[Rfam]
RNA sequence: AGGGGGCCACGUGUGGUGCCGUCCGCACCCCCUAUGCAGUAACGGAUGCACCAC
Numbered sequence: 001a002g003g004g005g006g007c008c009a010c011g012u013g014u015g016g017u018g019c020c021g022u023c024c025g026c027a028c029c030c031c032c033u034a035u036g037c038a039g040u041a042a043c044g045g046a047u048g049c050a051c052c053a054c
Base pairs, nucleotide, nucleotide: 001033002032003031004030005029006028013054014053015052016051017050018049019048035044036043
RNA: ribosomal frameshift element